[Rfam]
RNA: mir-86 microRNA precursor family
RNA sequence: UAAGUGAAUGCUUUGCCACAGUCUUCGACCAUGUCAAAGGAAGCCUGGGCUCAGAUUCGCUUAGGC
Numbered sequence: 001u002a003a004g005u006g007a008a009u010g011c012u013u014u015g016c017c018a019c020a021g022u023c024u025u026c027g028a029c030c031a032u033g034u035c036a037a038a039g040g041a042a043g044c045c046u047g048g049g050c051u052c053a054g055a056u057u058c059g060c061u062u063a064g065g066c
Stems, first nucleotide, its partner, number of pairs: 001063009011054002015050003019047003